[Rfam]
Rfam assigns this 132-nucleotide sequence to the family "Small nucleolar RNA SNORA44". Gene Ontology terms of the family: nucleolus and RNA processing. From the family's description: ACA44 is a member of the H/ACA class of snoRNA that guide the sites of modification of uridines to pseudouridines. It is one of the family's seed sequences. By type it is an H/ACA-box small nucleolar RNA. Clan: SNORA44 clan. The family has 27 seed sequences and 1,056 matches in Rfam 15.1.
RNA sequence: CAGCAUGUUUCCAAGGGCUGUGGCUGGUCAUAGCCAUGGGAUCUCCAACUGCAUGCAAGAGCAACCUGGAAAGACUUUGACAGCGCAGGUCAGUACAAUACCUGCAAGCUGCCACUCAGCUUUCCUAUAAUG
Numbered sequence: 001c002a003g004c005a006u007g008u009u010u011c012c013a014a015g016g017g018c019u020g021u022g023g024c025u026g027g028u029c030a031u032a033g034c035c036a037u038g039g040g041a042u043c044u045c046c047a048a049c050u051g052c053a054u055g056c057a058a059g060a061g062c063a064a065c066c067u068g069g070a071a072a073g074a075c076u077u078u079g080a081c082a083g084c085g086c087a088g089g090u091c092a093g094u095a096c097a098a099u100a101c102c103u104g105c106a107a108g109c110u111g112c113c114a115c116u117c118a119g120c121u122u123u124c125c126u127a128u129a130a131u132g
Base pairs, nucleotide, nucleotide: 011039012038016035017034018033019032020031021030022029068125069124070123071122072121073120083112084111086104087103088102089101